Notes: A member of the RNA family "ASdes TB sRNA" from Streptomyces longispororuber, 68 nucleotides long. The family's RNA type in Rfam is small RNA. The literature on the family includes a 2009 paper in Mol Microbiol by Arnvig and Young, "Identification of small RNAs in Mycobacterium tuberculosis".
[Rfam]
RNA sequence: AGGGCGACGGGGUCCACGGCGCGGGUGGCGUGGAGGUAGUCGCGCAGGGCCGUGCUGUGGCGGGCUUC
Numbered sequence: 001a002g003g004g005c006g007a008c009g010g011g012g013u014c015c016a017c018g019g020c021g022c023g024g025g026u027g028g029c030g031u032g033g034a035g036g037u038a039g040u041c042g043c044g045c046a047g048g049g050c051c052g053u054g055c056u057g058u059g060g061c062g063g064g065c066u067u068c
Base pairs, nucleotide, nucleotide: 005062006061008059009058012029013028015027016026017025035056036055037054038053040052042050043049
Dot-bracket structure: ....((.((..((.(((.......))))).....((((.(.((.....)).))))).)).))......